[Rfam]
RNA sequence: GUGCCAUGAUGUAAUGUCAACACAUCAUUCUGAAGAGGAAUUGUGUGGAGACCUUCUGUAACUGAGCACA
Numbered sequence: 001g002u003g004c005c006a007u008g009a010u011g012u013a014a015u016g017u018c019a020a021c022a023c024a025u026c027a028u029u030c031u032g033a034a035g036a037g038g039a040a041u042u043g044u045g046u047g048g049a050g051a052c053c054u055u056c057u058g059u060a061a062c063u064g065a066g067c068a069c070a
Stems, first nucleotide, its partner, number of pairs: 001069004
RNA: Small nucleolar RNA SNORD63